About this RNA
Bacterial RNase P class A: a 411-nucleotide RNA from Stappia albiluteola. Rfam's curators write: Ribonuclease P (RNase P) is a ubiquitous endoribonuclease, found in archaea, bacteria and eukarya as well as chloroplasts and mitochondria. By type it is a ribozyme. Lineage of the source: Bacteria > Pseudomonadota > Alphaproteobacteria > Stappiaceae > Stappia.
RNA sequence: CCAGUCGGCCGGACGGCCGCUCCCGCAAGUGCGGAAACGCCGCGGGGGAGGAAAGUCCGGGCUCCAUGGAAAUACGGUGCCGGGUAACGCCCGGCGGGGGCAACCUCAGGGAAAGUGCCACAGAAAGCAAACCGCCCCGCUCAGGCCGCAAGGCUUCGGGGUAAGGGUGAAAGGGUGGGGUAAGAGCCCACCGCGCGACCGGUAACGGAAGCGGCACGGCAAACCCCACCGGGAGCAAGACCGAAUAGGGGCGGCGCGAGCCUUCGGGCUCGGUCGAUUUCCAGACCAGCCGCCCGGGUUGGUUGCAGGAGGCGUCCGGUAACGGGCGCCCCAGAUGAAUGGUCGUCGCGCGGGGGCGGGGUACGCUUCGUCCGCGCCAUACAGAACCCGGCUUACAGGCCGGCUGGCACC
Numbered sequence: 001c002c003a004g005u006c007g008g009c010c011g012g013a014c015g016g017c018c019g020c021u022c023c024c025g026c027a028a029g030u031g032c033g034g035a036a037a038c039g040c041c042g043c044g045g046g047g048g049a050g051g052a053a054a055g056u057c058c059g060g061g062c063u064c065c066a067u068g069g070a071a072a073u074a075c076g077g078u079g080c081c082g083g084g085u086a087a088c089g090c091c092c093g094g095c096g097g098g099g100g101c102a103a104c105c106u107c108a109g110g111g112a113a114a115g116u117g118c119c120a121c122a123g124a125a126a127g128c129a130a131a132c133c134g135c136c137c138c139g140c141u142c143a144g145g146c147c148g149c150a151a152g153g154c155u156u157c158g159g160g161g162u163a164a165g166g167g168u169g170a171a172a173g174g175g176u177g178g179g180g181u182a183a184g185a186g187c188c189c190a191c192c193g194c195g196c197g198a199c200c201g202g203u204a205a206c207g208g209a210a211g212c213g214g215c216a217c218g219g220c221a222a223a224c225c226c227c228a229c230c231g232g233g234a235g236c237a238a239g240a241c242c243g244a245a246u247a248g249g250g251g252c253g254g255c256g257c258g259a260g261c262c263u264u265c266g267g268g269c270u271c272g273g274u275c276g277a278u279u280u281c282c283a284g285a286c287c288a289g290c291c292g293c294c295c296g297g298g299u300u301g302g303u304u305g306c307a308g309g310a311g312g313c314g315u316c317c318g319g320u321a322a323c324g325g326g327c328g329c330c331c332c333a334g335a336u337g338a339a340u341g342g343u344c345g346u347c348g349c350g351c352g353g354g355g356g357c358g359g360g361g362u363a364c365g366c367u368u369c370g371u372c373c374g375c376g377c378c379a380u381a382c383a384g385a386a387c388c389c390g391g392c393u394u395a396c397a398g399g400c401c402g403g404c405u406g407g408c409a410c411c
Stems, first nucleotide, its partner, number of pairs: 001407010011396001012347007020048007053394003057391005062235004075231005080094005095109001096107004110226002115224002117220003132166002134162006174192006193215001194213003199208003239304004249295006274288001276286001278284001311330008